A member of the RNA family "Small nucleolar RNA Z159/U59" from Oryza meyeriana, 96 nucleotides long. The match comes from Rfam's covariance-model search (74 bits). Its Rfam clan is "SNORD59 clan". A reference for the family is Chen et al. (2003), "The high diversity of snoRNAs in plants: identification and comparative study of 120 snoRNA genes from Oryza sativa", Nucleic Acids Res.
RNA sequence: GUCUCUGGUGAUGAUAAAAAUGAUAACUUUCGUUCUUCUGAUGCGCUUUCUCAUGGCGCGCUGUGGAAGCAAUGUGGAGACCUGAACUGAGGAGAC
Numbered sequence: 001g002u003c004u005c006u007g008g009u010g011a012u013g014a015u016a017a018a019a020a021u022g023a024u025a026a027c028u029u030u031c032g033u034u035c036u037u038c039u040g041a042u043g044c045g046c047u048u049u050c051u052c053a054u055g056g057c058g059c060g061c062u063g064u065g066g067a068a069g070c071a072a073u074g075u076g077g078a079g080a081c082c083u084g085a086a087c088u089g090a091g092g093a094g095a096c
Stems, first nucleotide, its partner, number of pairs: 003094004
Description
Its family is annotated with RNA processing and nucleolus in the Gene Ontology. NCBI's taxonomy places the organism under Eukaryota, Viridiplantae, Embryophyta, Poaceae, Oryza meyeriana.